[Rfam]
RNA sequence: GGGGCAGGCUAGGGGUGCCCGAAUGGAAGGGCUGAGAGCUGGGUUUCUCCCAGCAACCCUUGGAACCUGAUCCGGGUAAUGCCGGCGGAGGGAAGCCUAUGCGGAAGACC
Number, nucleotide and partner (000 for none) at each position: 001g000002g000003g000004g000005c000006a098007g097008g096009c095010u094011a060012g059013g058014g057015g000016u000017g032018c031019c030020c029021g000022a000023a000024u000025g000026g000027a000028a000029g020030g019031g018032c017033u000034g000035a000036g000037a000038g000039c053040u052041g051042g050043g049044u000045u000046u000047c000048u000049c043050c042051c041052a040053g039054c000055a000056a000057c014058c013059c012060u011061u000062g000063g000064a000065a000066c091067c090068u089069g000070a000071u000072c085073c084074g083075g082076g000077u000078a000079a000080u000081g000082c075083c074084g073085g072086c000087g000088g000089a068090g067091g066092g000093a000094a010095g009096c008097c007098u006099a000100u000101g000102c000103g000104g000105a000106a000107g000108a000109c000110c000

The family of this 110-nucleotide RNA from Thermus thermophilus is "TPP riboswitch aptamer (THI element)".